[Rfam]
RNA sequence: CUAUGUUUAGCAAAUUAAACAUGGCGGAAGGAG
Numbered sequence: 001c002u003a004u005g006u007u008u009a010g011c012a013a014a015u016u017a018a019a020c021a022u023g024g025c026g027g028a029a030g031g032a033g
Base pairs, nucleotide, nucleotide: 001024002023003022004021005020006019007018008017009016010015
RNA: L31-Firmicutes ribosomal protein leader